[Rfam]
RNA sequence: GCACCUGAAUCUUUCCUAUUCCUUGCUGCGCAGUGCAGGUUUUGGGGACAGUUGGUGCUACAGCAACGCAGUGGAAAUCCAGACGGGUUUCUCUUUUCUUUCACCUGGAACUCAUCUCUACAGCUCUGCAACAUUU
Numbered sequence: 001g002c003a004c005c006u007g008a009a010u011c012u013u014u015c016c017u018a019u020u021c022c023u024u025g026c027u028g029c030g031c032a033g034u035g036c037a038g039g040u041u042u043u044g045g046g047g048a049c050a051g052u053u054g055g056u057g058c059u060a061c062a063g064c065a066a067c068g069c070a071g072u073g074g075a076a077a078u079c080c081a082g083a084c085g086g087g088u089u090u091c092u093c094u095u096u097u098c099u100u101u102c103a104c105c106u107g108g109a110a111c112u113c114a115u116c117u118c119u120a121c122a123g124c125u126c127u128g129c130a131a132c133a134u135u136u
Stems, first nucleotide, its partner, number of pairs: 001058005013048006021039002068129004073124001081117003085113004098108002
The family of this 136-nucleotide RNA from Crypturellus soui is "Small nucleolar RNA SNORA55". Rfam classes the family as an H/ACA-box small nucleolar RNA. ACA55 is a member of the H/ACA class of snoRNA that guide the sites of modification of uridines to pseudouridines. Its family is annotated with RNA processing and nucleolus in the Gene Ontology.